Shown here is a 63-nucleotide sequence from Microvirga sp. BSC39, a member of the family "terC RNA". The family's consensus secondary structure is taken from published work. Rfam classes the family as a cis-regulatory element. The family has 129 seed sequences and 1,112 matches in Rfam 15.1.
RNA sequence: CCCCUGAUCCGGGCCCCUCUGACGCAGGAAGCGGUGGCGCUUGCGUGAUGUCGGAUCGUUACC
Numbered sequence: 001c002c003c004c005u006g007a008u009c010c011g012g013g014c015c016c017c018u019c020u021g022a023c024g025c026a027g028g029a030a031g032c033g034g035u036g037g038c039g040c041u042u043g044c045g046u047g048a049u050g051u052c053g054g055a056u057c058g059u060u061a062c063c
Stems, first nucleotide, its partner, number of pairs: 006057007022046007